[Rfam]
RNA sequence: AGACAGUUAACCGACUGACGGAAGUGGAAUUGACCACAGGGAAGUUAAUGCUAAGCAGAGCCGACCGUCUGGGCCAUGAAG
Number, nucleotide and partner (000 for none) at each position: 001a000002g000003a052004c000005a000006g049007u048008u047009a046010a045011c044012c000013g000014a000015c040016u039017g069018a068019c067020g066021g065022a000023a000024g037025u036026g035027g034028a000029a000030u000031u000032g000033a000034c027035c026036a025037c024038a000039g016040g015041g000042a000043a000044g011045u010046u009047a008048a007049u006050g000051c000052u003053a000054a000055g000056c000057a000058g000059a000060g074061c073062c072063g000064a000065c021066c020067g019068u018069c017070u000071g000072g062073g061074c060075c000076a000077u000078g000079a000080a000081g000